RNA sequence: AUGCUCUGGUUUUCCUUUCAAAACGAAUAAAUCUUUCGCCUUUUACUAAAGAUUUCCGUGGAGGGGAACAAGCAAUGAGUCUAUGAGUAUUUCUUACACCCUUCCUAUGGGAAGGGU
Numbered sequence: 001a002u003g004c005u006c007u008g009g010u011u012u013u014c015c016u017u018u019c020a021a022a023a024c025g026a027a028u029a030a031a032u033c034u035u036u037c038g039c040c041u042u043u044u045a046c047u048a049a050a051g052a053u054u055u056c057c058g059u060g061g062a063g064g065g066g067a068a069c070a071a072g073c074a075a076u077g078a079g080u081c082u083a084u085g086a087g088u089a090u091u092u093c094u095u096a097c098a099c100c101c102u103u104c105c106u107a108u109g110g111g112a113a114g115g116g117u
Stems, first nucleotide, its partner, number of pairs: 003080004009069003013066008029055008098117007
Shown here is a 117-nucleotide RNA from Darwinula stevensoni, a member of the family "U5 spliceosomal RNA". By type it is a spliceosomal small nuclear RNA. Pairs were carried over by alignment from the consensus structure, which is taken from published work.